Shown here is a 98-nucleotide RNA from Actinoplanes digitatis, a member of the family "Glycine riboswitch aptamer".
RNA sequence: UACUCCUGCGCGGGAGAGACCACCGGGUGAAUUCCCGGCGGCGCCGAAGGGGCAAAUCCUCCCCGGAACCUCUCAGGCAAAAGGACCGCGAGGGUAGG
Numbered sequence: 001u002a003c004u005c006c007u008g009c010g011c012g013g014g015a016g017a018g019a020c021c022a023c024c025g026g027g028u029g030a031a032u033u034c035c036c037g038g039c040g041g042c043g044c045c046g047a048a049g050g051g052g053c054a055a056a057u058c059c060u061c062c063c064c065g066g067a068a069c070c071u072c073u074c075a076g077g078c079a080a081a082a083g084g085a086c087c088g089c090g091a092g093g094g095u096a097g098g
Stems, first nucleotide, its partner, number of pairs: 006093002009090005020041002023038004043078003046074002050072003057065001
A search with the family's covariance model found it, with a score of 64 bits.